[Rfam]
RNA sequence: GUCGUGAACCUGGCAUACAAUGUAGAUUUCUGUGUGGUACUAUCUACAGCUACAUUGUCUGCUGGGUUUCAGGCCAGCAGA
Number, nucleotide and partner (000 for none) at each position: 001g000002u000003c000004g000005u000006g000007a000008a000009c000010c065011u064012g063013g062014c061015a060016u000017a058018c057019a056020a055021u054022g053023u052024a051025g050026a000027u000028u000029u000030c049031u048032g047033u046034g000035u000036g000037g000038u000039a000040c000041u000042a000043u000044c000045u000046a033047c032048a031049g030050c025051u024052a023053c022054a021055u020056u019057g018058u017059c000060u015061g014062c013063u012064g011065g010066g000067u000068u000069u000070c000071a000072g000073g000074c000075c000076a000077g000078c000079a000080g000081a000
This 81-nucleotide RNA from Danio rerio belongs to the Rfam family "mir-221 microRNA precursor family".
Rfam's curators put it in the seed alignment.
Rfam links the family to the GO terms miRNA-mediated post-transcriptional gene silencing and RISC complex.
On this family, see Soares et al., BMC Genomics 2009: "Parallel DNA pyrosequencing unveils new zebrafish microRNAs".